This 49-nucleotide sequence from Pararhodobacter oceanensis belongs to the Rfam family "SAM/SAH riboswitch aptamer". A search with the family's covariance model found it, with a score of 59 bits.

[Rfam]
RNA sequence: ACUCUGUCGCAACGGCUUCCUGGCGCGACAGUCGUAUAGCAAUGGAGCA
Numbered sequence: 001a002c003u004c005u006g007u008c009g010c011a012a013c014g015g016c017u018u019c020c021u022g023g024c025g026c027g028a029c030a031g032u033c034g035u036a037u038a039g040c041a042a043u044g045g046a047g048c049a
Base pairs, nucleotide, nucleotide: 004031005030006029007028008027009026010025013022014021015048016047017046019045020044